RNA: MIR2593 microRNA precursor family
Organism: Trifolium medium
RNA sequence: UUAUAACCAAAACUUACUUUUUAGAUUCAUUCAAUAACUGAUGAAUAUGGUCUAUAAUGCAGUCCAGAUUCAUCAGUUAUUGAAUGAAUCUAAAAAGUAAAUUUUGCUUAUAA
Number, nucleotide and partner (000 for none) at each position: 001u113002u112003a111004u110005a109006a108007c000008c106009a105010a104011a103012a102013c000014u100015u099016a098017c097018u096019u095020u094021u093022u092023a091024g090025a000026u088027u087028c086029a085030u084031u083032c082033a081034a080035u079036a078037a077038c076039u075040g074041a073042u072043g071044a000045a000046u000047a000048u066049g065050g064051u000052c000053u000054a000055u000056a000057a000058u000059g000060c000061a000062g000063u000064c050065c049066a048067g000068a000069u000070u000071c043072a042073u041074c040075a039076g038077u037078u036079a035080u034081u033082g032083a031084a030085u029086g028087a027088a026089u000090c024091u023092a022093a021094a020095a019096a018097g017098u016099a015100a014101a000102u012103u011104u010105u009106g008107c000108u006109u005110a004111u003112a002113a001